RNA sequence: CUUGUAUCCAUCUUUAGAUACGCUUGGUUUGUGGUUCCGAGCUAGUCAAAAUAGUUGUCGAGUUUGCAGCGUUUUAGUGCUCGGAUGAGUUGCGCUGUUUAUGAUAAACGUCCCACGUGCA
Numbered sequence: 001c002u003u004g005u006a007u008c009c010a011u012c013u014u015u016a017g018a019u020a021c022g023c024u025u026g027g028u029u030u031g032u033g034g035u036u037c038c039g040a041g042c043u044a045g046u047c048a049a050a051a052u053a054g055u056u057g058u059c060g061a062g063u064u065u066g067c068a069g070c071g072u073u074u075u076a077g078u079g080c081u082c083g084g085a086u087g088a089g090u091u092g093c094g095c096u097g098u099u100u101a102u103g104a105u106a107a108a109c110g111u112c113c114c115a116c117g118u119g120c121a
Stems, first nucleotide, its partner, number of pairs: 002017003006013001022042006031116004045105003049100002057093002060090001062086002068081005
RNA: RAGATH-11 RNA
Organism: Brachionus plicatilis